[Rfam]
RNA sequence: GGUCCAGAGUUGCGGCGGGUUUCACAUGGCCCCGGGACGUCAUCGCCGCACGGCAACCGCGGUUCGAGCCUCGGUGCCCUCCCGGGAAGACCGGCCACCGCCGGCAUCUCCGGCGGUCGGAAGAACUCGAC
Numbered sequence: 001g002g003u004c005c006a007g008a009g010u011u012g013c014g015g016c017g018g019g020u021u022u023c024a025c026a027u028g029g030c031c032c033c034g035g036g037a038c039g040u041c042a043u044c045g046c047c048g049c050a051c052g053g054c055a056a057c058c059g060c061g062g063u064u065c066g067a068g069c070c071u072c073g074g075u076g077c078c079c080u081c082c083c084g085g086g087a088a089g090a091c092c093g094g095c096c097a098c099c100g101c102c103g104g105c106a107u108c109u110c111c112g113g114c115g116g117u118c119g120g121a122a123g124a125a126c127u128c129g130a131c
Stems, first nucleotide, its partner, number of pairs: 001092004009051001011050008052078003057074003061069001095120002097117008
RNA: SAM (S-adenosyl methionine) riboswitch aptamer
Organism: Corynebacterium freneyi